Description
A member of the RNA family "c-di-AMP riboswitch aptamer (ydaO/yuaA leader)" from Arthrobacter sp. RIT-PI-e, 169 nucleotides long. Its family is annotated with cyclic-di-AMP binding and regulation of gene expression in the Gene Ontology. Lineage of the source: Bacteria > Bacillati > Actinomycetota > Micrococcaceae > Arthrobacter.
RNA sequence: CUCUGCCAUUGACCGAGGUCCGUCCGCACCAUCGCAUGGCAGAGGCGGGGGAACCAAGUUCUCGGAUCUCCGACCGGAGAUCCUCGGGGUUAAGCCGCUGUGCGUGCAGCGGCCGGGUGACUCCCAUCCGAACCCGACAGCUCACCUCGUAGGCGUUGGGAGAGGCAAU
Numbered sequence: 001c002u003c004u005g006c007c008a009u010u011g012a013c014c015g016a017g018g019u020c021c022g023u024c025c026g027c028a029c030c031a032u033c034g035c036a037u038g039g040c041a042g043a044g045g046c047g048g049g050g051g052a053a054c055c056a057a058g059u060u061c062u063c064g065g066a067u068c069u070c071c072g073a074c075c076g077g078a079g080a081u082c083c084u085c086g087g088g089g090u091u092a093a094g095c096c097g098c099u100g101u102g103c104g105u106g107c108a109g110c111g112g113c114c115g116g117g118u119g120a121c122u123c124c125c126a127u128c129c130g131a132a133c134c135c136g137a138c139a140g141c142u143c144a145c146c147u148c149g150u151a152g153g154c155g156u157u158g159g160g161a162g163a164g165g166c167a168a169u
Stems, first nucleotide, its partner, number of pairs: 001044009045150006055086001087135003095112004115129004
Annotation: A search with the family's covariance model found it, with a score of 62 bits.